[Rfam]
RNA sequence: GGUUGAAAGUUCAAGGCCACUGUAGAAGUGCUCAUGGUGUGGCCUGUCAGAUGCCUCCAAAUCUGCAAAUUCUGCU
Numbered sequence: 001g002g003u004u005g006a007a008a009g010u011u012c013a014a015g016g017c018c019a020c021u022g023u024a025g026a027a028g029u030g031c032u033c034a035u036g037g038u039g040u041g042g043c044c045u046g047u048c049a050g051a052u053g054c055c056u057c058c059a060a061a062u063c064u065g066c067a068a069a070u071u072c073u074g075c076u
Base pairs, nucleotide, nucleotide: 015044016043017042018041022075023074024073025072026071027070028040029039030038048065049064050063051062052061

A member of the RNA family "Mammalian CPEB3 ribozyme" from Crocodylus porosus, 76 nucleotides long. The match comes from Rfam's covariance-model search (42 bits). Lineage of the source: Eukaryota > Amniota > Sauropsida > Archelosauria > Crocodylus.